[Rfam]
RNA sequence: AAAUAGUUUCGGUAGGUGAGGUUACCUUAGGGAUACGGGUUGCUGCCGCGAAAUAGUGGAGACACUAUUAGAUGGUUAGCAGUAUACGUCGGAGAAGGCGUAUUCUAAUGCAAUUACAUUGCCCUAAGAAGCUAAAGCUUGGACGAAGAUUAUUAAG
Numbered sequence: 001a002a003a004u005a006g007u008u009u010c011g012g013u014a015g016g017u018g019a020g021g022u023u024a025c026c027u028u029a030g031g032g033a034u035a036c037g038g039g040u041u042g043c044u045g046c047c048g049c050g051a052a053a054u055a056g057u058g059g060a061g062a063c064a065c066u067a068u069u070a071g072a073u074g075g076u077u078a079g080c081a082g083u084a085u086a087c088g089u090c091g092g093a094g095a096a097g098g099c100g101u102a103u104u105c106u107a108a109u110g111c112a113a114u115u116a117c118a119u120u121g122c123c124c125u126a127a128g129a130a131g132c133u134a135a136a137g138c139u140u141g142g143a144c145g146a147a148g149a150u151u152a153u154u155a156a157g
Base pairs, nucleotide, nucleotide: 005153009149010148011144013096015139016138017137020133021132022131026128027127028126029125030124031123032122039114040113041112042111043110045076046075047074048073055066056065057064058063082105084103085102088099089098090097
Dot-bracket structure: ....(...(((.[.(((..(((...(((((((......(((((.((((......((((....))))......)))).....(.((..(((.....])))..)).)....))))).......)))))))..)))...)))....)...))...)....

The family of this 157-nucleotide sequence from Paraclostridium benzoelyticum is "M-box riboswitch aptamer (ykoK leader)".